[Rfam]
RNA sequence: GGGAAAUAGGGAGGCACCGAAACCAGACCUGCAAUACGGUCACCUCGGUCUGGUGGAGCCAGUGGUGAGACCGAACCUAUCCC
Numbered sequence: 001g002g003g004a005a006a007u008a009g010g011g012a013g014g015c016a017c018c019g020a021a022a023c024c025a026g027a028c029c030u031g032c033a034a035u036a037c038g039g040u041c042a043c044c045u046c047g048g049u050c051u052g053g054u055g056g057a058g059c060c061a062g063u064g065g066u067g068a069g070a071c072c073g074a075a076c077c078u079a080u081c082c083c
Stems, first nucleotide, its partner, number of pairs: 003083001006080005013060003022054008038072002040068005
The family of this 83-nucleotide RNA is "c-di-GMP-II-GAG riboswitch aptamer".
Pairs were carried over by alignment from the consensus structure, which is taken from published work.
It is one of the family's seed sequences.